[Rfam]
RNA sequence: CUUCACACUGCAUCCUCGCGACUAAUGACAACCCUUAACCCCCAUGAGUUAAAGUCUCUCAUUAGCCGCGCGAACCUCUGCACCGGAAGAUCCUAUGUUUUAAAAAUAUAGAACAACAAUAUACUAGCGUAUUUUAUCAUUGCUUCUUAGAAAAAAGGGGCCAAUUUGGCCCUUUCUC
Numbered sequence: 001c002u003u004c005a006c007a008c009u010g011c012a013u014c015c016u017c018g019c020g021a022c023u024a025a026u027g028a029c030a031a032c033c034c035u036u037a038a039c040c041c042c043c044a045u046g047a048g049u050u051a052a053a054g055u056c057u058c059u060c061a062u063u064a065g066c067c068g069c070g071c072g073a074a075c076c077u078c079u080g081c082a083c084c085g086g087a088a089g090a091u092c093c094u095a096u097g098u099u100u101u102a103a104a105a106a107u108a109u110a111g112a113a114c115a116a117c118a119a120u121a122u123a124c125u126a127g128c129g130u131a132u133u134u135u136a137u138c139a140u141u142g143c144u145u146c147u148u149a150g151a152a153a154a155a156a157g158g159g160g161c162c163a164a165u166u167u168g169g170c171c172c173u174u175u176c177u178c
Stems, first nucleotide, its partner, number of pairs: 001089004006085001010081003017072004022065007095132002157173006